[Rfam]
MIR4371 microRNA precursor family: a 158-nucleotide sequence from Glycine max. Rfam links the family to the GO terms miRNA-mediated post-transcriptional gene silencing and RISC complex. Pairs were carried over by alignment from the consensus structure, which was predicted with RNAalifold. It scores 119 bits against the family's covariance model. NCBI's taxonomy places the organism under Eukaryota, Embryophyta, Magnoliopsida, Fabales, Glycine subgen. Soja.

RNA sequence: CCGUUAAGUGAUGACAUGGCAGACAGAGUGUCACAUCAUCAUGCCUUAUCACUAACACAUUGUUGCCAUAUCAUUGAAGGUACUAACAUGGCAAUGAGGUGUCCGUGACAAGGCGUGAAGACGUGGGACUUCUUCUGCCACGUCAUCACUUAACUGAA
Numbered sequence: 001c002c003g004u005u006a007a008g009u010g011a012u013g014a015c016a017u018g019g020c021a022g023a024c025a026g027a028g029u030g031u032c033a034c035a036u037c038a039u040c041a042u043g044c045c046u047u048a049u050c051a052c053u054a055a056c057a058c059a060u061u062g063u064u065g066c067c068a069u070a071u072c073a074u075u076g077a078a079g080g081u082a083c084u085a086a087c088a089u090g091g092c093a094a095u096g097a098g099g100u101g102u103c104c105g106u107g108a109c110a111a112g113g114c115g116u117g118a119a120g121a122c123g124u125g126g127g128a129c130u131u132c133u134u135c136u137g138c139c140a141c142g143u144c145a146u147c148a149c150u151u152a153a154c155u156g157a158a
Stems, first nucleotide, its partner, number of pairs: 001156001003154013017140007026131004031126004036121002039118008049108004055102004071086001073084001